[Rfam]
RNA: c-di-AMP riboswitch aptamer (ydaO/yuaA leader)
RNA sequence: AACCUUAAAUUGCUUAAUCUGAAAAGAGCGGGGGAACCAUUUUUUAUGGGGUGAAUCCUUCUUAGUGAAGGUAGGGGUACUCUUUAAUCCCGAAUCCGACAGCUAACCUCGUCAGCAUAUAGAGAGUAGGU
Numbered sequence: 001a002a003c004c005u006u007a008a009a010u011u012g013c014u015u016a017a018u019c020u021g022a023a024a025a026g027a028g029c030g031g032g033g034g035a036a037c038c039a040u041u042u043u044u045u046a047u048g049g050g051g052u053g054a055a056u057c058c059u060u061c062u063u064a065g066u067g068a069a070g071g072u073a074g075g076g077g078u079a080c081u082c083u084u085u086a087a088u089c090c091c092g093a094a095u096c097c098g099a100c101a102g103c104u105a106a107c108c109u110c111g112u113c114a115g116c117a118u119a120u121a122g123a124g125a126g127u128a129g130g131u
Stems, first nucleotide, its partner, number of pairs: 011117004018027003028112006038048002049097003057071004074091004